MIR162_1 microRNA precursor family: a 113-nucleotide RNA sequence from Linum usitatissimum. The family's consensus secondary structure was predicted with RNAalifold. Clan: MIR167 microRNA precursor clan. Taxonomically the source falls in Linum (Eukaryota, Tracheophyta, Spermatophyta, eudicotyledons). The sequence is in the family's curated seed alignment.
[Rfam]
RNA sequence: CACACGGAGUUUGGAGGCAGCGGUUCAUCGAUCUCUUCAUGGUUUAUGUGGGUUCAUCCGAUCACAAAAACACGUGAAUCGAUCGAUAAACCUCUGCAUCCAGCAACCCCCCU
Number, nucleotide and partner (000 for none) at each position: 001c000002a000003c000004a000005c000006g000007g000008a000009g000010u000011u000012u000013g101014g100015a099016g000017g000018c096019a095020g094021c000022g092023g091024u090025u089026c000027a087028u086029c085030g084031a083032u082033c081034u000035c000036u078037u077038c076039a000040u000041g000042g000043u000044u000045u000046a000047u000048g000049u000050g000051g000052g000053u000054u000055c000056a000057u000058c000059c000060g000061a000062u000063c000064a000065c000066a000067a000068a000069a000070a000071c000072a000073c000074g000075u000076g038077a037078a036079u000080c000081g033082a032083u031084c030085g029086a028087u027088a000089a025090a024091c023092c022093u000094c020095u019096g018097c000098a000099u015100c014101c013102a000103g000104c000105a000106a000107c000108c000109c000110c000111c000112c000113u000